A member of the RNA family "Group II catalytic intron D1-D4-5" from Mesobacillus boroniphilus, 183 nucleotides long. The source organism's lineage runs through Bacteria, Bacillati, Bacillota, Bacillaceae and Mesobacillus boroniphilus.

RNA sequence: UCUAAAUUUGCAACGGAGGAUAGGAAUGAAGAAACCAUGUUUUCUGAAACUAUCCCAUCAACACUCCUGCGUGCGUCAUGGAUGACAGUUCAUGGGGUUCGGAGCACAGGUAGAUUCGGCAGAAGGAAGGCUGAAGCCAAUCUUUAAAAAGGUAUGCCAACUGAUAUGCCGCAUGGCUGAAAA
Numbered sequence: 001u002c003u004a005a006a007u008u009u010g011c012a013a014c015g016g017a018g019g020a021u022a023g024g025a026a027u028g029a030a031g032a033a034a035c036c037a038u039g040u041u042u043u044c045u046g047a048a049a050c051u052a053u054c055c056c057a058u059c060a061a062c063a064c065u066c067c068u069g070c071g072u073g074c075g076u077c078a079u080g081g082a083u084g085a086c087a088g089u090u091c092a093u094g095g096g097g098u099u100c101g102g103a104g105c106a107c108a109g110g111u112a113g114a115u116u117c118g119g120c121a122g123a124a125g126g127a128a129g130g131c132u133g134a135a136g137c138c139a140a141u142c143u144u145u146a147a148a149a150a151g152g153u154a155u156g157c158c159a160a161c162u163g164a165u166a167u168g169c170c171g172c173a174u175g176g177c178u179g180a181a182a183a
Stems, first nucleotide, its partner, number of pairs: 018055006031045001033043002056175003066110004070101002073098002076095008117171005125162002129158002137156001140153005